[Rfam]
RNA sequence: ACUUCCUGAGCCGGAACGAAAAGCUUUUUUUGGAAUGCGUGUUCCAACAAGCUUUUGGCUUACGGUUGUGAUGUUGUGUUGUUGUGUUUGCAAUUGGUCCUUGAUUUCGGGCCAUGGUAGCAAAGCUACCUUUUUCACUUCCUGUACAUUUACCCUGUCUGUCCAUAGUGAUUUAAUGUAGCACCGCAAUAUGCGGUGCUUUUUUUU
Number, nucleotide and partner (000 for none) at each position: 001a000002c000003u000004u000005c000006c000007u000008g000009a060010g059011c058012c057013g000014g000015a056016a055017c000018g000019a000020a000021a054022a053023g052024c051025u050026u049027u000028u000029u000030u047031u046032g045033g044034a043035a042036u041037g000038c000039g000040u000041g036042u035043u034044c033045c032046a031047a030048c000049a026050a025051g024052c023053u022054u021055u016056u015057g012058g011059c010060u009061u000062a000063c000064g000065g000066u000067u000068g000069u000070g000071a000072u000073g000074u000075u000076g000077u000078g000079u000080u000081g000082u000083u000084g000085u000086g000087u000088u000089u000090g000091c000092a000093a000094u000095u114096g113097g112098u111099c110100c109101u000102u000103g000104a000105u000106u000107u000108c000109g100110g099111g098112c097113c096114a095115u000116g130117g129118u128119a127120g126121c125122a000123a000124a000125g121126c120127u119128a118129c117130c116131u000132u000133u000134u000135u000136c000137a000138c000139u000140u000141c000142c000143u000144g000145u000146a179147c178148a177149u176150u175151u000152a000153c000154c000155c000156u000157g000158u000159c000160u000161g000162u000163c000164c000165a000166u000167a000168g000169u000170g000171a000172u000173u000174u000175a150176a149177u148178g147179u146180a200181g199182c198183a197184c196185c195186g194187c193188a000189a000190u000191a000192u000193g187194c186195g185196g184197u183198g182199c181200u180201u000202u000203u000204u000205u000206u000207u000

GcvB RNA: a 207-nucleotide RNA from Klebsiella indica. It is annotated as a non-coding RNA gene. The base pairs follow the family's consensus structure, which is taken from published work. On this family, see Urbanowski et al., Mol Microbiol 2000: "The gcvB gene encodes a small untranslated RNA involved in expression of the dipeptide and oligopeptide transport systems in Escherichia coli". Lineage of the source: Bacteria > Pseudomonadota > Gammaproteobacteria > Enterobacterales > Klebsiella. It scores 176 bits against the family's covariance model. Gene Ontology terms of the family: regulation of gene expression and mRNA binding. Rfam's curators write: The gcvB gene encodes a small untranslated RNA involved in expression of the dipeptide and oligopeptide transport systems in Escherichia coli. Included several unknown homologues in alignment (Bateman A pers obs). It base-pairs with SorC. This interaction triggers the degradation of GcvB by RNase E, alleviating the GcvB-mediated mRNA repression of other amino acid-related transport and metabolic genes.